[Rfam]
Nucleotides: 078
Stems, first nucleotide, its partner, number of pairs: 004074003009069006016062005022056003026053009
Number, partner (000 for none) and nucleotide at each position: 001000c002000u003000u004074u005073c006072u007000g008000u009069g010068c011067a012066g013065g014064u015000u016062g017061g018060g019059a020058u021000u022056a023055g024054u025000u026053g027052c028051a029050g030049u031048g032047c033046u034045g035000u036000u037000u038000a039000u040000u041000u042000g043000u044000a045034c046033g047032g048031u049030a050029u051028u052027g053026c054024a055023c056022u057000u058020g059019u060018c061017c062016c063000g064014g065013c066012c067011u068010g069009u070000u071000g072006a073005g074004g075000a076000c077000u078000a